[Rfam]
Nucleotides: 073
Base pairs, nucleotide, nucleotide: 008020009019010018011017040058041057042056043055044054045053046052047051
Number, partner (000 for none) and nucleotide at each position: 001000g002000g003000c004000g005000c006000a007000u008020g009019c010018c011017c012000u013000u014000c015000u016000u017011g018010g019009g020008c021000g022000u023000u024000u025000c026000c027000u028000c029000c030000c031000u032000a033000g034000a035000c036000u037000c038000g039000a040058g041057g042056c043055c044054g045053c046052c047051u048000c049000c050000a051047g052046g053045g054044c055043g056042g057041u058040c059000u060000u061000u062000u063000u064000u065000u066000g067000u068000c069000u070000g071000g072000a073000g
Makes More Granules Regulator RNA (mmgR): a 73-nucleotide RNA sequence from Lichenibacterium ramalinae. Gene Ontology terms of the family: protein binding, response to nitrogen compound and DNA-templated transcription, termination. From the family's description: SuhB later renamed mmgR (makes more granules regulator) was a putative non-coding RNA found multiple times in the Agrobacterium tumefaciens genome and related alpha-proteobacteria.